[Rfam]
This 87-nucleotide RNA from Eubacterium callanderi belongs to the Rfam family "c-di-GMP-I riboswitch aptamer". The source organism's lineage runs through Bacteria, Bacillati, Eubacteriales, Eubacteriaceae and Eubacterium.
RNA sequence: UUAAUAUCAGGGCAAAUCUGUUGAAAGACAGAGACGCAAAGCUAAAGGGCCUAAACAACCACUAUCAACUGGGCUGCAGUUAAACCA
Numbered sequence: 001u002u003a004a005u006a007u008c009a010g011g012g013c014a015a016a017u018c019u020g021u022u023g024a025a026a027g028a029c030a031g032a033g034a035c036g037c038a039a040a041g042c043u044a045a046a047g048g049g050c051c052u053a054a055a056c057a058a059c060c061a062c063u064a065u066c067a068a069c070u071g072g073g074c075u076g077c078a079g080u081u082a083a084a085c086c087a
Stems, first nucleotide, its partner, number of pairs: 012037002017032006040081004048077001049074005